[Rfam]
RNA sequence: CUUGACCGAGCCGAGCCAGAGGGGUUCGCCCGCCCGUUCCUGGCCGUAGGUGGCCAGCAGGGCCUGUGCCUC
Numbered sequence: 001c002u003u004g005a006c007c008g009a010g011c012c013g014a015g016c017c018a019g020a021g022g023g024g025u026u027c028g029c030c031c032g033c034c035c036g037u038u039c040c041u042g043g044c045c046g047u048a049g050g051u052g053g054c055c056a057g058c059a060g061g062g063c064c065u066g067u068g069c070c071u072c
Base pairs, nucleotide, nucleotide: 014026015025016024017023031068032067033066035062040057041056042055044053045052046051
Source information:
A member of the RNA family "ASpks TB sRNA" from Streptomyces sp. Eco86, 72 nucleotides long. By type it is an antisense RNA. The family has 77 seed sequences and 9,052 matches in Rfam 15.1. For this family Rfam cites "Identification of small RNAs in Mycobacterium tuberculosis" (Arnvig and Young, Mol Microbiol, 2009).